[Rfam]
RNA sequence: AUGAAGCUCUGCUGGCAGAUUUCCAUCCAUGGUUCUUAAAUAAGCAUGAAGAGAAGUGUGAAAGUGUGCUGUCACCUCUCACACUCCUCCACUUCCAACAGUUUGUUUGGGCUUUAGCUUUUGGCUUCUGUGAUCACCAUGGAGGUAUGCUCAAACAUUCUCUCUGAGUAGCAGAAGAAGCAGAUGAGCAUUCUCCAAAAGGAGCAGAGACUUUGGCUACAGCCUGGCAAGCCGGCAAGUCACAAAAAGGCAAUGGACUCCAUUAGGGGUUCGA
Numbered sequence: 001a002u003g004a005a006g007c008u009c010u011g012c013u014g015g016c017a018g019a020u021u022u023c024c025a026u027c028c029a030u031g032g033u034u035c036u037u038a039a040a041u042a043a044g045c046a047u048g049a050a051g052a053g054a055a056g057u058g059u060g061a062a063a064g065u066g067u068g069c070u071g072u073c074a075c076c077u078c079u080c081a082c083a084c085u086c087c088u089c090c091a092c093u094u095c096c097a098a099c100a101g102u103u104u105g106u107u108u109g110g111g112c113u114u115u116a117g118c119u120u121u122u123g124g125c126u127u128c129u130g131u132g133a134u135c136a137c138c139a140u141g142g143a144g145g146u147a148u149g150c151u152c153a154a155a156c157a158u159u160c161u162c163u164c165u166g167a168g169u170a171g172c173a174g175a176a177g178a179a180g181c182a183g184a185u186g187a188g189c190a191u192u193c194u195c196c197a198a199a200a201g202g203a204g205c206a207g208a209g210a211c212u213u214u215g216g217c218u219a220c221a222g223c224c225u226g227g228c229a230a231g232c233c234g235g236c237a238a239g240u241c242a243c244a245a246a247a248a249g250g251c252a253a254u255g256g257a258c259u260c261c262a263u264u265a266g267g268g269g270u271u272c273g274a
Base pairs, nucleotide, nucleotide: 060089061088101232102231103230104229105228106227120222121221256272257271259269260268

This 274-nucleotide RNA from Lotus japonicus belongs to the Rfam family "Early nodulin 40". It is annotated as a non-coding RNA gene. Rfam links the family to the GO term nodulation.